Rfam assigns this 198-nucleotide RNA sequence from Solanum lycopersicum to the family "Antisense RNA which regulates isiA expression". The match comes from Rfam's covariance-model search (126 bits).

RNA sequence: UAUAACCAAAUAUGAUACUCAGGCUAAGGGUCAAGUUGGUAAUUUUUCUCACAUCUCCCCCUCCCGGAGCCCAGGUAUCAUAUACGCCCCCAAAAUAAAGAGCCUUGAAUACUAGAAUAAAAGCACCUAUACCUUUGGUUCUUAAAAAGAAAUAGUUCGAGAAAGUUCAAUUGGCCGAAAUUAAUUUCUAGAUUCGCA
Numbered sequence: 001u002a003u004a005a006c007c008a009a010a011u012a013u014g015a016u017a018c019u020c021a022g023g024c025u026a027a028g029g030g031u032c033a034a035g036u037u038g039g040u041a042a043u044u045u046u047u048c049u050c051a052c053a054u055c056u057c058c059c060c061c062u063c064c065c066g067g068a069g070c071c072c073a074g075g076u077a078u079c080a081u082a083u084a085c086g087c088c089c090c091c092a093a094a095a096u097a098a099a100g101a102g103c104c105u106u107g108a109a110u111a112c113u114a115g116a117a118u119a120a121a122a123g124c125a126c127c128u129a130u131a132c133c134u135u136u137g138g139u140u141c142u143u144a145a146a147a148a149g150a151a152a153u154a155g156u157u158c159g160a161g162a163a164a165g166u167u168c169a170a171u172u173g174g175c176c177g178a179a180a181u182u183a184a185u186u187u188c189u190a191g192a193u194u195c196g197c198a
Stems, first nucleotide, its partner, number of pairs: 137195002140192003145189001147187003
Notes:
The literature on the family includes a 2006 paper in Proc Natl Acad Sci U S A by Duhring et al., "An internal antisense RNA regulates expression of the photosynthesis gene isiA".